A member of the RNA family "nrdJ RNA" from Streptomyces pristinaespiralis, 82 nucleotides long.

[Rfam]
RNA sequence: ACCUGCUCGUGGGCGCUGUGCGUGGCGUCAGAGCAACAGACACAAACCGUGCCCCGGGAAGAUCUGGGCACUUCAGGGCGUU
Numbered sequence: 001a002c003c004u005g006c007u008c009g010u011g012g013g014c015g016c017u018g019u020g021c022g023u024g025g026c027g028u029c030a031g032a033g034c035a036a037c038a039g040a041c042a043c044a045a046a047c048c049g050u051g052c053c054c055c056g057g058g059a060a061g062a063u064c065u066g067g068g069c070a071c072u073u074c075a076g077g078g079c080g081u082u
Stems, first nucleotide, its partner, number of pairs: 004035005010030002013028006049071006056064001

By type it is a small RNA. The sequence is in the family's curated seed alignment.